[Rfam]
RNA sequence: UGACCACUUCUUAUAAGGAAGGAAUGGCCAUACGGACAGCCGGGUCAAAUGCCGA
Numbered sequence: 001u002g003a004c005c006a007c008u009u010c011u012u013a014u015a016a017g018g019a020a021g022g023a024a025u026g027g028c029c030a031u032a033c034g035g036a037c038a039g040c041c042g043g044g045u046c047a048a049a050u051g052c053c054g055a
Stems, first nucleotide, its partner, number of pairs: 001047005007021005
Dot-bracket structure: (((((.(((((.....))))).....................)))))........
RNA: Streptococcus sRNA SpF59 (ldcC RNA)
Organism: Heyndrickxia ginsengihumi